[Rfam]
RNA sequence: UACGGUGCGCAUUGCUGUUUGCCAGGGUCACCGUGAAUCGUGGCCCGAUGCUGUAGAUCCCUGAUCCGCUACAUCGUUGCACCUCGCUUACUCCUUGCAACCAGCAUCUCGCCGCAUUCGUGCGGUAUUUCAAAAACAAUGUUCCAAGGAGCAAGAAAAUGUCUGACCGCGAAACCGGUACCGUCAAGUGGUUCAACGAUGCAAAGGGCUUCGGCUUCAUCUCCCGUGAGAAUGGCGAGGACGUGUUCGUUCACUUCCGCGCUAUCCAGGGUCAGGGCUUCAAGUCCCUGCAGGAAGGCCAGAAGGUCAGCUUCACCGUCACCCAGGGCCAGAAGGGCCUGCAGGCUGACGCGGUAGAAGCCGUCUAAGCACCAAUCAACUGCGGUCGCUUCGGCGAUCGCACGAGAUACAGAGGAACCCGGCUUCGGCCGGGUUUCUUUUU
Numbered sequence: 001u002a003c004g005g006u007g008c009g010c011a012u013u014g015c016u017g018u019u020u021g022c023c024a025g026g027g028u029c030a031c032c033g034u035g036a037a038u039c040g041u042g043g044c045c046c047g048a049u050g051c052u053g054u055a056g057a058u059c060c061c062u063g064a065u066c067c068g069c070u071a072c073a074u075c076g077u078u079g080c081a082c083c084u085c086g087c088u089u090a091c092u093c094c095u096u097g098c099a100a101c102c103a104g105c106a107u108c109u110c111g112c113c114g115c116a117u118u119c120g121u122g123c124g125g126u127a128u129u130u131c132a133a134a135a136a137c138a139a140u141g142u143u144c145c146a147a148g149g150a151g152c153a154a155g156a157a158a159a160u161g162u163c164u165g166a167c168c169g170c171g172a173a174a175c176c177g178g179u180a181c182c183g184u185c186a187a188g189u190g191g192u193u194c195a196a197c198g199a200u201g202c203a204a205a206g207g208g209c210u211u212c213g214g215c216u217u218c219a220u221c222u223c224c225c226g227u228g229a230g231a232a233u234g235g236c237g238a239g240g241a242c243g244u245g246u247u248c249g250u251u252c253a254c255u256u257c258c259g260c261g262c263u264a265u266c267c268a269g270g271g272u273c274a275g276g277g278c279u280u281c282a283a284g285u286c287c288c289u290g291c292a293g294g295a296a297g298g299c300c301a302g303a304a305g306g307u308c309a310g311c312u313u314c315a316c317c318g319u320c321a322c323c324c325a326g327g328g329c330c331a332g333a334a335g336g337g338c339c340u341g342c343a344g345g346c347u348g349a350c351g352c353g354g355u356a357g358a359a360g361c362c363g364u365c366u367a368a369g370c371a372c373c374a375a376u377c378a379a380c381u382g383c384g385g386u387c388g389c390u391u392c393g394g395c396g397a398u399c400g401c402a403c404g405a406g407a408u409a410c411a412g413a414g415g416a417a418c419c420c421g422g423c424u425u426c427g428g429c430c431g432g433g434u435u436u437c438u439u440u441u442u
Stems, first nucleotide, its partner, number of pairs: 004032004039226001042224002053217001056216001058214002060208003070203001072201002075198005081192003085161002088158002093149005099143001101111001103109002122131001124129001163178003230320001232319004240248002251309001253307004261300001262298002265292001267290004274285001325340003329337002341386002344383001389406003394401002412439012

A member of the RNA family "cspA thermoregulator" from Lysobacter sp. A03, 442 nucleotides long. It scores 98 bits against the family's covariance model. Lineage of the source: Bacteria > Pseudomonadota > Gammaproteobacteria > Lysobacteraceae > Lysobacter. The base pairs follow the family's consensus structure, which is taken from published work. Gene Ontology terms of the family: regulation of translation and response to temperature stimulus. The literature on the family includes a 2010 paper in Mol Cell by Giuliodori et al., "The cspA mRNA is a thermosensor that modulates translation of the cold-shock protein CspA".